Xanthine riboswitch aptamer (NMT1 RNA): an 88-nucleotide RNA from Derxia gummosa. Pairs were carried over by alignment from the consensus structure, which is taken from published work.
[Rfam]
RNA sequence: ACCGAGAGUAGAAGCGUUCACCGCCCCACCCGCGCCACGCACCACCACGGCGCAUUUCACCCCGGGGCGGCCGGAAAUUGCUCUUGAA
Numbered sequence: 001a002c003c004g005a006g007a008g009u010a011g012a013a014g015c016g017u018u019c020a021c022c023g024c025c026c027c028a029c030c031c032g033c034g035c036c037a038c039g040c041a042c043c044a045c046c047a048c049g050g051c052g053c054a055u056u057u058c059a060c061c062c063c064g065g066g067g068c069g070g071c072c073g074g075a076a077a078u079u080g081c082u083c084u085u086g087a088a
Stems, first nucleotide, its partner, number of pairs: 005084006015073001018075002021070007